[Rfam]
Rfam assigns this 67-nucleotide RNA sequence from Bombyx mori to the family "mir-2774 microRNA precursor family". The base pairs follow the family's consensus structure, which was predicted with RNAalifold. The match comes from Rfam's covariance-model search (55 bits). The literature on the family includes a 2010 paper in BMC Genomics by Liu et al., "MicroRNAs of Bombyx mori identified by Solexa sequencing".

RNA sequence: GCAAUAUCAAGACCGCCAGUCUGCCGAGCAAUAUCUCCCGCUGGAUGGAAGAUCUUCUCUCUAUCGA
Numbered sequence: 001g002c003a004a005u006a007u008c009a010a011g012a013c014c015g016c017c018a019g020u021c022u023g024c025c026g027a028g029c030a031a032u033a034u035c036u037c038c039c040g041c042u043g044g045a046u047g048g049a050a051g052a053u054c055u056u057c058u059c060u061c062u063a064u065c066g067a
Stems, first nucleotide, its partner, number of pairs: 004064003010058003015053001017051001020049004025044001027042003